Description
The family of this 68-nucleotide RNA from Mycobacterium dioxanotrophicus is "ASdes TB sRNA". The base pairs follow the family's consensus structure, which is taken from published work. Lineage of the source: Bacteria > Bacillati > Actinomycetota > Mycobacteriales > Mycobacterium. The match comes from Rfam's covariance-model search (75 bits). The literature on the family includes a 2009 paper in Mol Microbiol by Arnvig and Young, "Identification of small RNAs in Mycobacterium tuberculosis".
RNA sequence: AGGGCGACAGGGUCGACGCCGCGAGUGACCACCAGGUAGUCGCGCAACACGAUGCUGUGACGGCCUUC
Numbered sequence: 001a002g003g004g005c006g007a008c009a010g011g012g013u014c015g016a017c018g019c020c021g022c023g024a025g026u027g028a029c030c031a032c033c034a035g036g037u038a039g040u041c042g043c044g045c046a047a048c049a050c051g052a053u054g055c056u057g058u059g060a061c062g063g064c065c066u067u068c
Base pairs, nucleotide, nucleotide: 005062006061008059009058011030012029013028016026017025035056036055037054038053040052041051042050044048